[Rfam]
RNA sequence: UCGGCCGUAAGUGGGGAGUAGUCGGCUUGCGCCGCCCUGGCGCAGGAAUUUGCAUCAACAUCAUCGGUCCGCAGACCGUGGUGCAAAUGGUUGAAAAACUUGACGAGACCAUGAUCGAAGCGCGGCCAUCGUGGGCCGGGGACGCGCUUUGGAUCAUAGGUUCUUAUCGGCCGGC
Numbered sequence: 001u002c003g004g005c006c007g008u009a010a011g012u013g014g015g016g017a018g019u020a021g022u023c024g025g026c027u028u029g030c031g032c033c034g035c036c037c038u039g040g041c042g043c044a045g046g047a048a049u050u051u052g053c054a055u056c057a058a059c060a061u062c063a064u065c066g067g068u069c070c071g072c073a074g075a076c077c078g079u080g081g082u083g084c085a086a087a088u089g090g091u092u093g094a095a096a097a098a099c100u101u102g103a104c105g106a107g108a109c110c111a112u113g114a115u116c117g118a119a120g121c122g123c124g125g126c127c128a129u130c131g132u133g134g135g136c137c138g139g140g141g142a143c144g145c146g147c148u149u150u151g152g153a154u155c156a157u158a159g160g161u162u163c164u165u166a167u168c169g170g171c172c173g174g175c
Base pairs, nucleotide, nucleotide: 026046027045028044029043030042031041032040048088049087050086051085052084053083054082055081056080057079065078066077067076068075069074
The record is a 175-nucleotide RNA from Duganella sp. Leaf126, which matches "Manganese Mn2+ riboswitch aptamer (yybP-ykoY)" in Rfam. A reference for the family is Dambach et al. (2015), "The ubiquitous yybP-ykoY riboswitch is a manganese-responsive regulatory element", Mol Cell. Rfam describes the family as follows. This RNA was originally discovered in E. coli during a large scale screen and was named SraF. The family was later found to exist upstream of related families of protein genes in many bacteria, including the the yybP and ykoK genes in B. subtilis.